[Rfam]
RNA sequence: UUGGAAGCUUUGAGGCUGUAGCAGAAGCGCUCAUGGUGCAGCCAUGUCAGAUUCCAGCAAAUCUGCAAAUUUGGCU
Numbered sequence: 001u002u003g004g005a006a007g008c009u010u011u012g013a014g015g016c017u018g019u020a021g022c023a024g025a026a027g028c029g030c031u032c033a034u035g036g037u038g039c040a041g042c043c044a045u046g047u048c049a050g051a052u053u054c055c056a057g058c059a060a061a062u063c064u065g066c067a068a069a070u071u072u073g074g075c076u
Stems, first nucleotide, its partner, number of pairs: 014043004020076003024072003027039003048065006

Mammalian CPEB3 ribozyme: a 76-nucleotide sequence from Crocodylus porosus. The source organism's lineage runs through Eukaryota, Metazoa, Archelosauria, Crocodylidae and Crocodylus. The family's consensus secondary structure is taken from published work.